[Rfam]
RNA sequence: GUGUUUGCGGCUGUGGCAUCAUCAAGAUUCACAUAGAUCGGGCGAUAAGCUCAUCAGAUUCAAAGCGUCGUUGACUGAGAUGAGAAUCUUGAUGAUGCUGCAUCGGCAAUCGG
Numbered sequence: 001g002u003g004u005u006u007g008c009g010g011c012u013g014u015g016g017c018a019u020c021a022u023c024a025a026g027a028u029u030c031a032c033a034u035a036g037a038u039c040g041g042g043c044g045a046u047a048a049g050c051u052c053a054u055c056a057g058a059u060u061c062a063a064a065g066c067g068u069c070g071u072u073g074a075c076u077g078a079g080a081u082g083a084g085a086a087u088c089u090u091g092a093u094g095a096u097g098c099u100g101c102a103u104c105g106g107c108a109a110u111c112g113g
Base pairs, nucleotide, nucleotide: 010104012102013101014100015099016098017097018096019095020094021093022092023091024090025089026088027087028086029085030084032082033081
The record is a 113-nucleotide RNA from Spirodela intermedia, which matches "mir-172 microRNA precursor family" in Rfam. mir-172 has been experimentally verified in Arabidopsis thaliana. Its family is annotated with RISC complex and miRNA-mediated post-transcriptional gene silencing in the Gene Ontology. Pairs were carried over by alignment from the consensus structure, which was predicted with PFOLD. The literature on the family includes a 2004 paper in Mol Cell by Jones-Rhoades and Bartel, "Computational Identification of Plant MicroRNAs and Their Targets, Including a Stress-Induced miRNA".